The family of this 52-nucleotide RNA sequence is "Plastid-psbA-3 3UTR RNA".

RNA sequence: AAAGGAACAAUAACCCCUCUUGAUAGAACAAGAAAGAGUUUAUUGCUCCUUA
Dot-bracket structure: .(((((.(((((((...(((((......)))))....)).))))).))))).
Numbered sequence: 001a002a003a004g005g006a007a008c009a010a011u012a013a014c015c016c017c018u019c020u021u022g023a024u025a026g027a028a029c030a031a032g033a034a035a036g037a038g039u040u041u042a043u044u045g046c047u048c049c050u051u052a
Stems, first nucleotide, its partner, number of pairs: 002051005008045005013039002018033005

Rfam describes the family as follows. Plastid psbA-3 is a non-coding RNA (ncRNA) present in plastids. It was identified in inverted repeat sequences in the 3 prime untranslate region (3UTR) of photosystem II quinone-binding protein (psbA).
The base pairs follow the family's consensus structure, which was predicted with LocARNA.
The family is grouped with related families in Rfam's "Plastid-psbA 3UTR RNA clan".